[Rfam]
RNA sequence: UGUCGCCUAUGAUGAGAUUAGUGGAAAACCACUUUGUGGCCUCGCUAAUUUCUGAUGUGCUCCUCA
Number, nucleotide and partner (000 for none) at each position: 001u066002g065003u000004c000005g062006c000007c000008u000009a000010u000011g000012a000013u000014g052015a051016g050017a049018u048019u047020a046021g045022u044023g043024g000025a000026a000027a000028a000029c039030c038031a037032c000033u000034u000035u000036g000037u031038g030039g029040c000041c000042u000043c023044g022045c021046u020047a019048a018049u017050u016051u015052c014053u000054g000055a000056u000057g000058u000059g000060c000061u000062c005063c000064u000065c002066a001
Selenocysteine insertion sequence 1: a 66-nucleotide RNA from Rodentolepis nana. Taxonomically the source falls in Rodentolepis (Eukaryota, Platyhelminthes, Cestoda, Eucestoda). Rfam classes the family as a cis-regulatory element. The base pairs follow the family's consensus structure, which is taken from published work. On this family, see Walczak et al., RNA 1996: "A novel RNA structural motif in the selenocysteine insertion element of eukaryotic selenoprotein mRNAs". The incorporation of selenocysteine into a protein sequence is directed by an in-frame UGA codon (usually a stop codon) within the coding region of the mRNA. Selenoprotein mRNAs contain a conserved secondary structure in the 3' UTR that is required for the distinction of UGA stop from UGA selenocysteine.